RNA: Small nucleolar RNA SNORD72
Organism: Carlito syrichta
RNA sequence: AGCUUAUCAGUGAUGUAAAAAAAAAAAAAAAUGUCUGAACUUAUGAAUGCAAAGUUGAUUUCAGCAUUUAACUGAGAUAAGCU
Numbered sequence: 001a002g003c004u005u006a007u008c009a010g011u012g013a014u015g016u017a018a019a020a021a022a023a024a025a026a027a028a029a030a031a032u033g034u035c036u037g038a039a040c041u042u043a044u045g046a047a048u049g050c051a052a053a054g055u056u057g058a059u060u061u062c063a064g065c066a067u068u069u070a071a072c073u074g075a076g077a078u079a080a081g082c083u
Base pairs, nucleotide, nucleotide: 002082003081004080005079006078007077008076
Dot-bracket structure: .(((((((...................................................................))))))).